[Rfam]
RNA sequence: GGGGACCUACGGGGCCCUAUCGAUCACAGACGGGGCGGCAACGUCCCGCGAAGCAGACGGAAGACAGAAA
Numbered sequence: 001g002g003g004g005a006c007c008u009a010c011g012g013g014g015c016c017c018u019a020u021c022g023a024u025c026a027c028a029g030a031c032g033g034g035g036c037g038g039c040a041a042c043g044u045c046c047c048g049c050g051a052a053g054c055a056g057a058c059g060g061a062a063g064a065c066a067g068a069a070a
Stems, first nucleotide, its partner, number of pairs: 001018004006014003029049001031048007
This 70-nucleotide RNA belongs to the Rfam family "L2-Alphaproteobacteria ribosomal protein leader". On this family, see Eckert and Weinberg, BMC Microbiol 2020: "Discovery of 20 novel ribosomal leader candidates in bacteria and archaea".